Rfam assigns this 72-nucleotide RNA sequence from Sedimentibacter hydroxybenzoicus to the family "tRNA". Rfam describes the family as follows. Transfer RNA (tRNA) molecules are approximately 80 nucleotides in length. Their secondary structure includes four short double-helical elements and three loops (D, anti-codon, and T loops). Further hydrogen bonds mediate the characteristic L-shaped molecular structure. tRNAs have two regions of fundamental functional importance: the anti-codon, which is responsible for specific mRNA codon recognition, and the 3' end, to which the tRNAs corresponding amino acid is attached (by aminoacyl-tRNA synthetases). tRNAs cope with the degeneracy of the genetic code in two manners: having more than one tRNA (with a specific anti-codon) for a particular amino acid; and 'wobble' base-pairing, i.e. permitting non-standard base-pairing at the 3rd anti-codon position. The family's RNA type in Rfam is transfer RNA. Gene Ontology term of the family: triplet codon-amino acid adaptor activity. It scores 62 bits against the family's covariance model.
RNA sequence: UGGGGUAUCGCCAAGCGGUAAGGCACCAGACUCUGACUCUGGCAUUCGUGGGUUCAAAUCCUACUACCCCAG
Numbered sequence: 001u002g003g004g005g006u007a008u009c010g011c012c013a014a015g016c017g018g019u020a021a022g023g024c025a026c027c028a029g030a031c032u033c034u035g036a037c038u039c040u041g042g043c044a045u046u047c048g049u050g051g052g053u054u055c056a057a058a059u060c061c062u063a064c065u066a067c068c069c070c071a072g
Stems, first nucleotide, its partner, number of pairs: 001071007010024003026042005048064005